Annotation
This 70-nucleotide RNA from Nodosilinea sp. LEGE 07088 belongs to the Rfam family "Cyano-1 RNA". NCBI's taxonomy places the organism under Bacteria, Bacillati, Nodosilineales, Nodosilineaceae, Nodosilinea. By type it is a small RNA. The match comes from Rfam's covariance-model search (45 bits).
RNA sequence: AAACGUGUGAGGAGCGAACCAGAAGAGAUGCCGAGACGAAACACGGCCAGUCGUCGGCAUCUCUUUUGUU
Numbered sequence: 001a002a003a004c005g006u007g008u009g010a011g012g013a014g015c016g017a018a019c020c021a022g023a024a025g026a027g028a029u030g031c032c033g034a035g036a037c038g039a040a041a042c043a044c045g046g047c048c049a050g051u052c053g054u055c056g057g058c059a060u061c062u063c064u065u066u067u068g069u070u
Stems, first nucleotide, its partner, number of pairs: 023065005030058005035052003